[Rfam]
RNA: tRNA
RNA sequence: GGGUAGGUGGCAGAGUGGUCGAUUGCUCCGGUCUUGAAAACCGGCGAACGUGCAAGCGUUCCGGGGGUUCGAAUCCCUCCCUACCCG
Numbered sequence: 001g002g003g004u005a006g007g008u009g010g011c012a013g014a015g016u017g018g019u020c021g022a023u024u025g026c027u028c029c030g031g032u033c034u035u036g037a038a039a040a041c042c043g044g045c046g047a048a049c050g051u052g053c054a055a056g057c058g059u060u061c062c063g064g065g066g067g068u069u070c071g072a073a074u075c076c077c078u079c080c081c082u083a084c085c086c087g
Base pairs, nucleotide, nucleotide: 001086002085003084004083005082006081007080010026011025012024013023028044029043030042031041032040063079064078065077066076067075